Background: The record is a 72-nucleotide RNA from Tropilaelaps mercedesae, which matches "mir-375 microRNA precursor family" in Rfam. For this family Rfam cites "The developmental miRNA profiles of zebrafish as determined by small RNA cloning" (Chen et al., Genes Dev, 2005). Its family is annotated with RISC complex and miRNA-mediated post-transcriptional gene silencing in the Gene Ontology. The match comes from Rfam's covariance-model search (51 bits). The organism belongs to Tropilaelaps, within Eukaryota.

RNA sequence: ACUCACUUGAUCCGGGCGUAACAAAGCUCAGAAUAUUUGAGAAACGUUUUGUUCGUUCGGCUCGAGUUAGGG
Numbered sequence: 001a002c003u004c005a006c007u008u009g010a011u012c013c014g015g016g017c018g019u020a021a022c023a024a025a026g027c028u029c030a031g032a033a034u035a036u037u038u039g040a041g042a043a044a045c046g047u048u049u050u051g052u053u054c055g056u057u058c059g060g061c062u063c064g065a066g067u068u069a070g071g072g
Stems, first nucleotide, its partner, number of pairs: 002070002005067006012060002017055002021052004026047002